[Rfam]
A member of the RNA family "Small nucleolar RNA SNORA3/SNORA45 family" from Anabarilius grahami, 130 nucleotides long. A reference for the family is Huttenhofer et al. (2001), "RNomics: an experimental approach that identifies 201 candidates for novel, small, non-messenger RNAs in mouse", EMBO J. The family has 6 seed sequences and 2,080 matches in Rfam 15.1. Rfam's curators write: The members of this family belong to the H/ACA class of snoRNAs which are thought to guide the sites of modification of uridines to pseudouridines. This family includes mouse snoMBI-28 and human homologues ACA3 (SNORA3) and ACA3-2 (SNORA45). The family is grouped with related families in Rfam's "SNORA3 clan". By type it is an H/ACA-box small nucleolar RNA. NCBI's taxonomy places the organism under Eukaryota, Gnathostomata, Cypriniformes, Xenocypridinae, Anabarilius.
RNA sequence: AGCGAGUCUAGAGUCACAUCCUGAUGUUGCUCAUUGUCCUGGUGUGCUAUUGUACUCGCAUAGUAACUCUCUGCUUAUUCAUUGGCUGCUGUUUUCUAUUGCCCAGCCAAUCACCAGCUCAGAUACAAAU
Numbered sequence: 001a002g003c004g005a006g007u008c009u010a011g012a013g014u015c016a017c018a019u020c021c022u023g024a025u026g027u028u029g030c031u032c033a034u035u036g037u038c039c040u041g042g043u044g045u046g047c048u049a050u051u052g053u054a055c056u057c058g059c060a061u062a063g064u065a066a067c068u069c070u071c072u073g074c075u076u077a078u079u080c081a082u083u084g085g086c087u088g089c090u091g092u093u094u095u096c097u098a099u100u101g102c103c104c105a106g107c108c109a110a111u112c113a114c115c116a117g118c119u120c121a122g123a124u125a126c127a128a129a130u
Stems, first nucleotide, its partner, number of pairs: 002059005008052001012048002015046006023038004069122002073118003081111005087105002